[Rfam]
RNA sequence: GUGAAUCCGUUGGGGUGCCCCGUCAGGGGCUGAGAGGCGACAGCCGACCCAUAGAACCUGAUCCGGCUAAUACCGGCGUAGGGAACGGAGCUCGACCGAAC
Numbered sequence: 001g002u003g004a005a006u007c008c009g010u011u012g013g014g015g016u017g018c019c020c021c022g023u024c025a026g027g028g029g030c031u032g033a034g035a036g037g038c039g040a041c042a043g044c045c046g047a048c049c050c051a052u053a054g055a056a057c058c059u060g061a062u063c064c065g066g067c068u069a070a071u072a073c074c075g076g077c078g079u080a081g082g083g084a085a086c087g088g089a090g091c092u093c094g095a096c097c098g099a100a101c
Base pairs, nucleotide, nucleotide: 006089007088008087009086010085011051012050013049014048017030018029019028020027021026037044038043057082058081059080060079063076064075065074066073
Notes: The family of this 101-nucleotide RNA from Salipiger profundus is "TPP riboswitch aptamer (THI element)". A search with the family's covariance model found it, with a score of 79 bits. Pairs were carried over by alignment from the consensus structure, which is taken from published work. Taxonomically the source falls in Salipiger (Bacteria, Alphaproteobacteria, Rhodobacterales, Roseobacteraceae).